Shown here is a 141-nucleotide sequence from Leptosomus discolor, a member of the family "Small nucleolar RNA SNORA12". On this family, see Gu et al., Nucleic Acids Res 2005: "A novel experimental approach for systematic identification of box H/ACA snoRNAs from eukaryotes". The family's consensus secondary structure was predicted with RNAalifold. Rfam links the family to the GO terms nucleolus and RNA processing. Lineage of the source: Eukaryota > Opisthokonta > Deuterostomia > Archosauria > Leptosomus. It is annotated as an H/ACA-box small nucleolar RNA. Rfam's curators write: U108 belongs to the H/ACA family of snoRNAs. The sequence is predicted to guide the pseudouridylation of the U372 residue in the 28S rRNA subunit. However it has not been reported as a pseudouridylation site.

[Rfam]
RNA sequence: UAUUGUGGUGGUUUCUGUGUUUGGCAGAUCUGUAGCUGUGUCAGAGCGGCCUUAAACUACCACAGAGAUCAGAAAGGAGAAGGCUGUCCUGAGAACUUUUUCAAGCUUUUAGUUUUCAGCUUUUGUUCGCCUCCUACAGAA
Numbered sequence: 001u002a003u004u005g006u007g008g009u010g011g012u013u014u015c016u017g018u019g020u021u022u023g024g025c026a027g028a029u030c031u032g033u034a035g036c037u038g039u040g041u042c043a044g045a046g047c048g049g050c051c052u053u054a055a056a057c058u059a060c061c062a063c064a065g066a067g068a069u070c071a072g073a074a075a076g077g078a079g080a081a082g083g084c085u086g087u088c089c090u091g092a093g094a095a096c097u098u099u100u101u102c103a104a105g106c107u108u109u110u111a112g113u114u115u116u117c118a119g120c121u122u123u124u125g126u127u128c129g130c131c132u133c134c135u136a137c138a139g140a141a
Base pairs, nucleotide, nucleotide: 005063006062007061008060009059010058011057023051024050025049027047029045030044031043032042076134077133078132079131103124104123105122